[Rfam]
Description:
This 53-nucleotide RNA from Bauldia litoralis belongs to the Rfam family "ffh sRNA". The source organism's lineage runs through Bacteria, Pseudomonadati, Alphaproteobacteria, Hyphomicrobiales and Bauldia. The literature on the family includes a 2009 paper in BMC Genomics by Meyer et al., "Identification of candidate structured RNAs in the marine organism 'Candidatus Pelagibacter ubique'". The family's RNA type in Rfam is small RNA. The match comes from Rfam's covariance-model search (57 bits).
RNA sequence: GAUCCCGGAGGUCAACGUCCGCCAGCGCGAUGCGCCCGCGGGCGCCGAAAGCG
Numbered sequence: 001g002a003u004c005c006c007g008g009a010g011g012u013c014a015a016c017g018u019c020c021g022c023c024a025g026c027g028c029g030a031u032g033c034g035c036c037c038g039c040g041g042g043c044g045c046c047g048a049a050a051g052c053g
Base pairs, nucleotide, nucleotide: 016044017043018042019041020040021039022038025035026034027033028032